[Rfam]
The family of this 95-nucleotide sequence from Monascus purpureus is "A. fumigatus snoRNA Afu_263". The match comes from Rfam's covariance-model search (92 bits). The base pairs follow the family's consensus structure.

RNA sequence: UCGAGUGAUGAUCACCAUAUCCAAAAGCAUAGUUCACCUGAGAUCUUCGGAUCGCUGAACGACAACCAUAUACCAUCUUUCACCUUUAUCUGAGU
Numbered sequence: 001u002c003g004a005g006u007g008a009u010g011a012u013c014a015c016c017a018u019a020u021c022c023a024a025a026a027g028c029a030u031a032g033u034u035c036a037c038c039u040g041a042g043a044u045c046u047u048c049g050g051a052u053c054g055c056u057g058a059a060c061g062a063c064a065a066c067c068a069u070a071u072a073c074c075a076u077c078u079u080u081c082a083c084c085u086u087u088a089u090c091u092g093a094g095u
Base pairs, nucleotide, nucleotide: 006019008018009017010016032060033059034058035057036056042053043052044051045050